A member of the RNA family "RT-5 RNA", 101 nucleotides long. Pairs were carried over by alignment from the consensus structure, which is taken from published work.

[Rfam]
Nucleotides: 101
Stems, first nucleotide, its partner, number of pairs: 005047007014067002017064001021060008036051004072087006
Number, partner (000 for none) and nucleotide at each position: 001000a002000u003000g004000c005047a006046c007045c008044u009043g010042u011041g012000g013000a014067g015066g016000g017064c018000a019000c020000a021060g022059c023058a024057u025056g026055c027054a028053g029000u030000a031000g032000u033000a034000u035000a036051g037050a038049u039048u040000u041011u042010g043009c044008a045007g046006g047005u048039a049038a050037u051036c052000a053028c054027u055026g056025c057024a058023u059022g060021u061000a062000c063000g064017g065000u066015c067014u068000a069000g070000u071000a072087u073086c074085c075084g076083c077082u078000a079000c080000c081000u082077a083076g084075c085074g086073g087072a088000u089000u090000u091000a092000a093000g094000a095000u096000u097000u098000u099000c100000g101000u